Rfam assigns this 99-nucleotide RNA sequence from Salix brachista to the family "MIR394 microRNA precursor family". NCBI's taxonomy places the organism under Eukaryota, Embryophyta, Magnoliopsida, Pentapetalae, Salix. A search with the family's covariance model found it, with a score of 92 bits. Pairs were carried over by alignment from the consensus structure, which was predicted with WAR.
RNA sequence: CUUACAGAGUUUAUUGGCAUUCUGUCCACCUCCCGCCCGUAGAAACUACAAGUUGUUUACUCUCUGGAGGUGGGCAUACUGCCAACCGAGCUCUGUUGG
Number, nucleotide and partner (000 for none) at each position: 001c000002u000003u000004a000005c000006a000007g000008a000009g000010u000011u089012u000013a000014u085015u084016g083017g082018c081019a080020u000021u000022c000023u076024g075025u074026c073027c072028a071029c070030c069031u068032c067033c066034c000035g000036c000037c000038c000039g000040u000041a000042g000043a000044a000045a000046c000047u000048a000049c000050a000051a000052g000053u000054u000055g000056u000057u000058u000059a000060c000061u000062c000063u000064c000065u000066g033067g032068a031069g030070g029071u028072g027073g026074g025075c024076a023077u000078a000079c000080u019081g018082c017083c016084a015085a014086c000087c000088g000089a011090g000091c000092u000093c000094u000095g000096u000097u000098g000099g000
The family has 19 seed sequences and 724 matches in Rfam 15.1.